[Rfam]
RNA sequence: GCUGGGUCCAGCUGGGACCGGUUGUGGACAAAAGAAAUAUGUUUUGUCCACUGCUGCAGUCUUCCUAGAGCGAAGUGGAGGUCUCUGUCUGCUUUUGGAGAGCCAACCAAACCGGAUCGUUCCCCUCCAUACACG
Numbered sequence: 001g002c003u004g005g006g007u008c009c010a011g012c013u014g015g016g017a018c019c020g021g022u023u024g025u026g027g028a029c030a031a032a033a034g035a036a037a038u039a040u041g042u043u044u045u046g047u048c049c050a051c052u053g054c055u056g057c058a059g060u061c062u063u064c065c066u067a068g069a070g071c072g073a074a075g076u077g078g079a080g081g082u083c084u085c086u087g088u089c090u091g092c093u094u095u096u097g098g099a100g101a102g103c104c105a106a107c108c109a110a111a112c113c114g115g116a117u118c119g120u121u122c123c124c125c126u127c128c129a130u131a132c133a134c135g
Stems, first nucleotide, its partner, number of pairs: 004065003009059001011057002024051006034043002077128005085119001087117003091113001093111003097107001
The record is a 135-nucleotide RNA from Mesitornis unicolor, which matches "Small Cajal body specific RNA 3" in Rfam. For this family Rfam cites "Cajal body-specific small nuclear RNAs: a novel class of 2'-O-methylation and pseudouridylation guide RNAs" (Darzacq et al., EMBO J, 2002). Lineage of the source: Eukaryota > Opisthokonta > Chordata > Vertebrata > Mesitornis. A search with the family's covariance model found it, with a score of 95 bits. The family's consensus secondary structure was predicted with RNAalifold. From the family's description: scaRNAs are a specific class of small nuclear RNAs which localise to the Cajal bodies and guide the modification of RNA polymerase II transcribed spliceosomal RNAs U1, U2, U4, U5 and U12.